[Rfam]
RNA sequence: CCCGCAAGACAGGGGAGCGCUGCAGGGCGCUGAGAGUGCGGGAAACUCCGCAGACCCUCAGAACCUGAUCCGGGUCAUGCCGGCGCAGGGAGUCGAUAUCGACACGUC
Numbered sequence: 001c002c003c004g005c006a007a008g009a010c011a012g013g014g015g016a017g018c019g020c021u022g023c024a025g026g027g028c029g030c031u032g033a034g035a036g037u038g039c040g041g042g043a044a045a046c047u048c049c050g051c052a053g054a055c056c057c058u059c060a061g062a063a064c065c066u067g068a069u070c071c072g073g074g075u076c077a078u079g080c081c082g083g084c085g086c087a088g089g090g091a092g093u094c095g096a097u098a099u100c101g102a103c104a105c106g107u108c
Base pairs, nucleotide, nucleotide: 008094009093010092011058012057013056014055017030018029019028020027021026037052038051039050040049041048064089065088066087067086070083071082072081073080

The record is a 108-nucleotide RNA sequence from Phytoactinopolyspora alkaliphila, which matches "TPP riboswitch aptamer (THI element)" in Rfam. It scores 69 bits against the family's covariance model. The source organism's lineage runs through Bacteria, Bacillati, Actinomycetes, Jiangellales and Phytoactinopolyspora. Its family is annotated with thiamine pyrophosphate binding in the Gene Ontology.